[Rfam]
RNA sequence: GUCAAUAUUUUUCGGGGUAAACAUUGGUGUAACAUAUAUAAUAUAUUACACCAAUGUUUACCCCGAAAAAUAUUGAC
Numbered sequence: 001g002u003c004a005a006u007a008u009u010u011u012u013c014g015g016g017g018u019a020a021a022c023a024u025u026g027g028u029g030u031a032a033c034a035u036a037u038a039u040a041a042u043a044u045a046u047u048a049c050a051c052c053a054a055u056g057u058u059u060a061c062c063c064c065g066a067a068a069a070a071u072a073u074u075g076a077c
Stems, first nucleotide, its partner, number of pairs: 001077003005073003010070001011067006018060001020058008
A member of the RNA family "mir-16 microRNA precursor family" from Apolygus lucorum, 77 nucleotides long. Taxonomically the source falls in Apolygus (Eukaryota, Pterygota, Neoheteroptera, Panheteroptera). A search with the family's covariance model found it, with a score of 42 bits. The base pairs follow the family's consensus structure, which was predicted with PFOLD. Gene Ontology terms of the family: RISC complex and miRNA-mediated post-transcriptional gene silencing.